Overview:
The record is a 54-nucleotide RNA from Muraenolepis orangiensis, which matches "UnaL2 LINE 3' element" in Rfam. Rfam 15.1 lists 493,311 matches to the family in 99 species. The family's RNA type in Rfam is cis-regulatory element. Lineage of the source: Eukaryota > Gnathostomata > Eurypterygia > Gadiformes > Muraenolepis.
[Rfam]
RNA sequence: GAAACACACCCAUGUAAGUCGCUUUGGAUAAAAGCGUCUGCUAAAUUACUGUAA
Numbered sequence: 001g002a003a004a005c006a007c008a009c010c011c012a013u014g015u016a017a018g019u020c021g022c023u024u025u026g027g028a029u030a031a032a033a034g035c036g037u038c039u040g041c042u043a044a045a046u047u048a049c050u051g052u053a054a
Stems, first nucleotide, its partner, number of pairs: 013043001014041003020036006